This 81-nucleotide sequence from Myotis myotis belongs to the Rfam family "mir-574 microRNA precursor family". The source organism's lineage runs through Eukaryota, Dipnotetrapodomorpha, Tetrapoda, Amniota and Myotis. The family's consensus secondary structure was predicted with RNAalifold. Its family is annotated with RISC complex and miRNA-mediated post-transcriptional gene silencing in the Gene Ontology. The match comes from Rfam's covariance-model search (88 bits). Its Rfam clan is "mir-574 microRNA precursor clan".

[Rfam]
RNA sequence: AGGCUCGGAUAGAGAGGCAGGGUUUGAUCCGCAGCCUCCGUGGCAGCUGUUGAUCAACCGUUGCCACUCUCUUUCUCUCUG
Numbered sequence: 001a002g003g004c005u006c007g008g009a010u011a012g013a014g015a016g017g018c019a020g021g022g023u024u025u026g027a028u029c030c031g032c033a034g035c036c037u038c039c040g041u042g043g044c045a046g047c048u049g050u051u052g053a054u055c056a057a058c059c060g061u062u063g064c065c066a067c068u069c070u071c072u073u074u075c076u077c078u079c080u081g
Stems, first nucleotide, its partner, number of pairs: 008073002011070004016065005022059001024057006032049004